[Rfam]
RNA: U1 spliceosomal RNA
Organism: Etheostoma spectabile
RNA sequence: AUACUACCUCGGCAGGGGAGAUACCACGAUCCAGGAAGGGGUUCGCCCAGGGCCCGAGGGCUAAACCCAUUGCACUCCGGUUAUGCUGACCCCUGCGAAUUCCCCAAAUGUGGGAAUCUCGACUGCAUAAUUUGUGGUAGUGGGGGACUGCGUUCGCGCUCUCCCCUG
Numbered sequence: 001a002u003a004c005u006a007c008c009u010c011g012g013c014a015g016g017g018g019a020g021a022u023a024c025c026a027c028g029a030u031c032c033a034g035g036a037a038g039g040g041g042u043u044c045g046c047c048c049a050g051g052g053c054c055c056g057a058g059g060g061c062u063a064a065a066c067c068c069a070u071u072g073c074a075c076u077c078c079g080g081u082u083a084u085g086c087u088g089a090c091c092c093c094u095g096c097g098a099a100u101u102c103c104c105c106a107a108a109u110g111u112g113g114g115a116a117u118c119u120c121g122a123c124u125g126c127a128u129a130a131u132u133u134g135u136g137g138u139a140g141u142g143g144g145g146g147a148c149u150g151c152g153u154u155c156g157c158g159c160u161c162u163c164c165c166c167u168g
Stems, first nucleotide, its partner, number of pairs: 012126004016048003020044002023042003027038001049094004056090001058087002062083003067080002096121003099117003103113002142167006150159003